[Rfam]
The record is a 162-nucleotide RNA from Araneus ventricosus, which matches "U1 spliceosomal RNA" in Rfam. U1 is a small nuclear RNA (snRNA) component of the spliceosome (involved in pre-mRNA splicing). Its 5' end forms complementary base pairs with the 5' splice junction, thus defining the 5' donor site of an intron. There are significant differences in sequence and secondary structure between metazoan and yeast U1 snRNAs, the latter being much longer (568 nucleotides as compared to 164 nucleotides in human). Nevertheless, secondary structure predictions suggest that all U1 snRNAs share a 'common core' consisting of helices I, II, the proximal region of III, and IV. This family does not contain the larger yeast sequences. The source organism's lineage runs through Eukaryota, Opisthokonta, Metazoa, Panarthropoda and Araneus. The match comes from Rfam's covariance-model search (123 bits). Rfam 15.1 lists 40,184 matches to the family in 1,499 species. Rfam classes the family as a spliceosomal small nuclear RNA. The family's consensus secondary structure is taken from published work.

RNA sequence: AUACUUACUUGGCGUCGGAGAUGCCCUGAUCAAGAAGGGGGCUCUCCCGAUUGGAGGCCGUUCAUUGCACAUCGGGCGGCUGACAAUUGCCACUUCCGCAAAGUGUGGUUGGUUGGGGCGCACAAUUUUUGGUAGUCGGGACUGCGUUCGCGCUGCUCCCGG
Numbered sequence: 001a002u003a004c005u006u007a008c009u010u011g012g013c014g015u016c017g018g019a020g021a022u023g024c025c026c027u028g029a030u031c032a033a034g035a036a037g038g039g040g041g042c043u044c045u046c047c048c049g050a051u052u053g054g055a056g057g058c059c060g061u062u063c064a065u066u067g068c069a070c071a072u073c074g075g076g077c078g079g080c081u082g083a084c085a086a087u088u089g090c091c092a093c094u095u096c097c098g099c100a101a102a103g104u105g106u107g108g109u110u111g112g113u114u115g116g117g118g119c120g121c122a123c124a125a126u127u128u129u130u131g132g133u134a135g136u137c138g139g140g141a142c143u144g145c146g147u148u149c150g151c152g153c154u155g156c157u158c159c160c161g162g
Stems, first nucleotide, its partner, number of pairs: 012121004017047005023042005049088004054084001056081003060077004090116003093112002097108001137161005144153003